The family of this 72-nucleotide RNA sequence from Lagothrix lagotricha is "mir-30 microRNA precursor family". The sequence is in the family's curated seed alignment. Rfam's curators write: This family consists of the mammalian microRNA (miRNA) precursor mir-30a. Animal miRNAs are transcribed as ~70nt precursors and subsequently processed by the Dicer enzyme to give a ~22nt product. In this case the mature sequence comes from both the 3' (miR-30) and 5' (mir-97-6) arms of the precursor. The extents of the hairpin precursors are not generally known and are estimated based on hairpin prediction. Rfam links the family to the GO terms RISC complex and gene silencing by miRNA. Taxonomically the source falls in Lagothrix (Eukaryota, Opisthokonta, Bilateria, Atelinae).
RNA sequence: AGAUACUGUAAACAUCCUACACUCUCAGCUGUGGAAAGUAAGAAAGCUGGGAGAAGGCUGUUUACUCUUUCU
Numbered sequence: 001a002g003a004u005a006c007u008g009u010a011a012a013c014a015u016c017c018u019a020c021a022c023u024c025u026c027a028g029c030u031g032u033g034g035a036a037a038g039u040a041a042g043a044a045a046g047c048u049g050g051g052a053g054a055a056g057g058c059u060g061u062u063u064a065c066u067c068u069u070u071c072u
Base pairs, nucleotide, nucleotide: 001072002071003070008065009064010063011062012061013060014059016057017056018055022053023052024051025050026049027048028047029046030045